[Rfam]
RNA sequence: ACAAUAUUUGGAAUGUCGGUCUACCGAACAAUUGCAUCCGUUUGGUGGAAUAUCCUCCCACUGUCAU
Numbered sequence: 001a002c003a004a005u006a007u008u009u010g011g012a013a014u015g016u017c018g019g020u021c022u023a024c025c026g027a028a029c030a031a032u033u034g035c036a037u038c039c040g041u042u043u044g045g046u047g048g049a050a051u052a053u054c055c056u057c058c059c060a061c062u063g064u065c066a067u
Base pairs, nucleotide, nucleotide: 004064005063006062010058011057012056015053016052020049021048022047023046024045025044026043027042028041029040
RNA: mir-2774 microRNA precursor family
Organism: Bombyx mori